The family of this 277-nucleotide sequence from Shouchella lonarensis is "BsrG". Pairs were carried over by alignment from the consensus structure, which was predicted with WAR. The match comes from Rfam's covariance-model search (56 bits). About the family: bsrE, bsrG and bsrH pair through intermolecular interactions with antisense sRNAs. They form type I toxin/antitoxin system that includes an mRNA encoding for a short, toxic peptide (bsrE, bsrG and bsrH) and an antitoxin that is comprised of an antisense RNA. bsrG encodes a 39-amino-acid toxin, and the 180 nucleotide antisense sRNA called SR4 acts as the antitoxin (they overlap by 123 nucleotides). SR4 interaction with the 3'UTR of bsrG RNA promotes bsrG degradation and inhibits its translation. NCBI's taxonomy places the organism under Bacteria, Bacillati, Bacilli, Caryophanales, Shouchella. The family has 6 seed sequences and 614 matches in Rfam 15.1. The family's RNA type in Rfam is small RNA. A reference for the family is Saito et al. (2008), "Novel small RNA-encoding genes in the intergenic regions of Bacillus subtilis", Gene.
[Rfam]
RNA sequence: AAGUAACAUGAAGGGUCUUUAAGGGUGGACGCCACUUCCUCUGAGAGGAGGUGUUGCGGGAUGACGACAUUUCAAGCGCUCGUGCUCAUGAUUGCAUUUGGCGGGUUGAUUGUAUCGAUCAUCGGGCUAUCGCAAAAGCAAGAUGGCGAUAAAACCAAGAAAUAACCACCCUUAAGCGUUCCAGGCAGUAGGGUGGCAGGUUGUCACUAUACGAACGGGCGUCCCUCUUAAAGGGAACCCUGUUAUUUCAGGCCAUAGAUGCGGUUGGGCAUCUGUG
Numbered sequence: 001a002a003g004u005a006a007c008a009u010g011a012a013g014g015g016u017c018u019u020u021a022a023g024g025g026u027g028g029a030c031g032c033c034a035c036u037u038c039c040u041c042u043g044a045g046a047g048g049a050g051g052u053g054u055u056g057c058g059g060g061a062u063g064a065c066g067a068c069a070u071u072u073c074a075a076g077c078g079c080u081c082g083u084g085c086u087c088a089u090g091a092u093u094g095c096a097u098u099u100g101g102c103g104g105g106u107u108g109a110u111u112g113u114a115u116c117g118a119u120c121a122u123c124g125g126g127c128u129a130u131c132g133c134a135a136a137a138g139c140a141a142g143a144u145g146g147c148g149a150u151a152a153a154a155c156c157a158a159g160a161a162a163u164a165a166c167c168a169c170c171c172u173u174a175a176g177c178g179u180u181c182c183a184g185g186c187a188g189u190a191g192g193g194u195g196g197c198a199g200g201u202u203g204u205c206a207c208u209a210u211a212c213g214a215a216c217g218g219g220c221g222u223c224c225c226u227c228u229u230a231a232a233g234g235g236a237a238c239c240c241u242g243u244u245a246u247u248u249c250a251g252g253c254c255a256u257a258g259a260u261g262c263g264g265u266u267g268g269g270c271a272u273c274u275g276u277g
Base pairs, nucleotide, nucleotide: 001248002247003246004245005244007242008241010239014220016218017217018176019175020174021173022172023171024170025169027166033053034052036050037049038048039047040046063131064130066128068126077090078089100123101122103120187208188207222236223235224234225233254277255276256275257274258273259272260271261270262269